[Rfam]
The family of this 122-nucleotide RNA sequence from Barley yellow dwarf virus OYV is "Luteovirus cap-independent translation element (BTE)". Pairs were carried over by alignment from the consensus structure, which is taken from published work. Its family is annotated with translation initiation factor binding and translational initiation in the Gene Ontology. The family's RNA type in Rfam is cis-regulatory element. For this family Rfam cites "Subgenomic RNA as a riboregulator: negative regulation of RNA replication by Barley yellow dwarf virus subgenomic RNA 2" (Shen and Miller, Virology, 2004). Rfam's curators write: This family represents the Luteovirus cap-independent translation element (BTE) as found in barley yellow dwarf virus (BYDV), bean leafroll virus and soybean dwarf virus. This family mediates translation of genomic (gRNA) and subgenomic RNA1 (sgRNA1).
RNA sequence: ACACCACUAGCUCAAACCGGAUCCUGGGAAACAGGCAGGACUUAGGUCCAUAAGCUCGGGUAGUUGGAGGGUGGGCUGUCAACCCACCGCCGACCUACCGCCGUAUCGCUUUGAGUUUGGCC
Numbered sequence: 001a002c003a004c005c006a007c008u009a010g011c012u013c014a015a016a017c018c019g020g021a022u023c024c025u026g027g028g029a030a031a032c033a034g035g036c037a038g039g040a041c042u043u044a045g046g047u048c049c050a051u052a053a054g055c056u057c058g059g060g061u062a063g064u065u066g067g068a069g070g071g072u073g074g075g076c077u078g079u080c081a082a083c084c085c086a087c088c089g090c091c092g093a094c095c096u097a098c099c100g101c102c103g104u105a106u107c108g109c110u111u112u113g114a115g116u117u118u119g120g121c122c
Stems, first nucleotide, its partner, number of pairs: 004120003009117007018108003023035004038049004054104002059099005